The family of this 93-nucleotide RNA sequence from Triticum turgidum is "Small nucleolar RNA Z102/R77". Its Rfam clan is "SNORD44 clan". The literature on the family includes a 2003 paper in Nucleic Acids Res by Chen et al., "The high diversity of snoRNAs in plants: identification and comparative study of 120 snoRNA genes from Oryza sativa". Rfam classes the family as a C/D-box small nucleolar RNA.

[Rfam]
RNA sequence: AGAUGAGAUGAUGAAAGAGAUUAAUUUCCCUAUUGCUUUGAUUGGCCGAUAUGAUGGCCUCAAUAGUCAAUAGUGAACUGAAUAUGAUCAUCC
Numbered sequence: 001a002g003a004u005g006a007g008a009u010g011a012u013g014a015a016a017g018a019g020a021u022u023a024a025u026u027u028c029c030c031u032a033u034u035g036c037u038u039u040g041a042u043u044g045g046c047c048g049a050u051a052u053g054a055u056g057g058c059c060u061c062a063a064u065a066g067u068c069a070a071u072a073g074u075g076a077a078c079u080g081a082a083u084a085u086g087a088u089c090a091u092c093c
Base pairs, nucleotide, nucleotide: 002092003091004090005089040061044059045058046057047056